[Rfam]
RNA: Small nucleolar RNA SNORD58
RNA sequence: CUGCAGUGAUGACCAACUUAGGACACCUUUGGAAUUAUCAUGAAAACAAAUAAGUGGAUCUGAGCAGU
Numbered sequence: 001c002u003g004c005a006g007u008g009a010u011g012a013c014c015a016a017c018u019u020a021g022g023a024c025a026c027c028u029u030u031g032g033a034a035u036u037a038u039c040a041u042g043a044a045a046a047c048a049a050a051u052a053a054g055u056g057g058a059u060c061u062g063a064g065c066a067g068u
Stems, first nucleotide, its partner, number of pairs: 001067004